[Rfam]
RNA sequence: AACGCGCUCCGGGGUCAGUGAAAAUCUGUACCGGCGGUAUAGUCCGCGACCCGCUCGCUUCCUGCAGAGGCCGAUCUCUGAAAGGGGCGGGCGGCUGAACUGGUGCAAUUCCAGUGCCGACGGUGAAAGUCCGGAUACGAGGCAGCGCGCG
Numbered sequence: 001a002a003c004g005c006g007c008u009c010c011g012g013g014g015u016c017a018g019u020g021a022a023a024a025u026c027u028g029u030a031c032c033g034g035c036g037g038u039a040u041a042g043u044c045c046g047c048g049a050c051c052c053g054c055u056c057g058c059u060u061c062c063u064g065c066a067g068a069g070g071c072c073g074a075u076c077u078c079u080g081a082a083a084g085g086g087g088c089g090g091g092c093g094g095c096u097g098a099a100c101u102g103g104u105g106c107a108a109u110u111c112c113a114g115u116g117c118c119g120a121c122g123g124u125g126a127a128a129g130u131c132c133g134g135a136u137a138c139g140a141g142g143c144a145g146c147g148c149g150c151g
Stems, first nucleotide, its partner, number of pairs: 003149006009142002016028003030130002032119002034047004042117002051094011099115005121133003

A member of the RNA family "FMN riboswitch aptamer (RFN element)" from Frondihabitans australicus, 151 nucleotides long. A search with the family's covariance model found it, with a score of 83 bits. Lineage of the source: Bacteria > Actinomycetota > Micrococcales > Microbacteriaceae > Frondihabitans.